RNA sequence: AUCGCUUCUCGGCCUUUUGGCUAAGAUCAAAGUGUAGUAUCUGUUCUUAUCAGCCAAUAUCUGAUACGCACCCCAUGUGGGUACUUCGAUAUUAAACUGAUUUUUUGCAACUAGGUGAGAUGUUGGUGCUUGCACCGCUCUUGCCUGAAGUUGGCCUGGUAUUGCAGUACCUCCAGGAUCGGCUCACUCCUC
Dot-bracket structure: ......(((.((((....)))).))).....................((((((.......)))))).(.((((.....)))).).............................(((((((....((((....))))..)))))))...(((((.(((((.............)))))..)))))........
Numbered sequence: 001a002u003c004g005c006u007u008c009u010c011g012g013c014c015u016u017u018u019g020g021c022u023a024a025g026a027u028c029a030a031a032g033u034g035u036a037g038u039a040u041c042u043g044u045u046c047u048u049a050u051c052a053g054c055c056a057a058u059a060u061c062u063g064a065u066a067c068g069c070a071c072c073c074c075a076u077g078u079g080g081g082u083a084c085u086u087c088g089a090u091a092u093u094a095a096a097c098u099g100a101u102u103u104u105u106u107g108c109a110a111c112u113a114g115g116u117g118a119g120a121u122g123u124u125g126g127u128g129c130u131u132g133c134a135c136c137g138c139u140c141u142u143g144c145c146u147g148a149a150g151u152u153g154g155c156c157u158g159g160u161a162u163u164g165c166a167g168u169a170c171c172u173c174c175a176g177g178a179u180c181g182g183c184u185c186a187c188u189c190c191u192c
Stems, first nucleotide, its partner, number of pairs: 007026003011022004048066006068084001070082004114145007125136004149184005155177005

This 192-nucleotide sequence from Mytilus coruscus belongs to the Rfam family "U2 spliceosomal RNA". Pairs were carried over by alignment from the consensus structure, which is taken from published work. The family is grouped with related families in Rfam's "U2 clan". The match comes from Rfam's covariance-model search (153 bits). Its family is annotated with mRNA branch site recognition, pre-mRNA branch point binding and U2 snRNP in the Gene Ontology. Rfam describes the family as follows. U2 is a small nuclear RNA (snRNA) component of the spliceosome (involved in pre-mRNA splicing). Complementary binding between U2 snRNA (in an area lying towards the 5' end but 3' to hairpin I) and the branchpoint sequence (BPS) of the intron results the bulging out of an unpaired adenosine, on the BPS, which initiates a nucleophilic attack at the intronic 5' splice site, thus starting the first of two transesterification reactions that mediate splicing.